Record summary
Shown here is an 88-nucleotide sequence from Luteimonas sp. FCS-9, a member of the family "SAH (S-adenosyl-L-homocysteine) riboswitch aptamer". Taxonomically the source falls in Luteimonas (Bacteria, Pseudomonadota, Gammaproteobacteria, Lysobacterales).

[Rfam]
RNA sequence: CUCGCCGAGGGGCGCUGCGACCGUGUACGGCCCGCCACGGGUCACGGCCAGGCUCGGCGCGGUGCCCCGAGAACGGCGCCCGUAAUCG
Numbered sequence: 001c002u003c004g005c006c007g008a009g010g011g012g013c014g015c016u017g018c019g020a021c022c023g024u025g026u027a028c029g030g031c032c033c034g035c036c037a038c039g040g041g042u043c044a045c046g047g048c049c050a051g052g053c054u055c056g057g058c059g060c061g062g063u064g065c066c067c068c069g070a071g072a073a074c075g076g077c078g079c080c081c082g083u084a085a086u087c088g
Stems, first nucleotide, its partner, number of pairs: 003059006021047005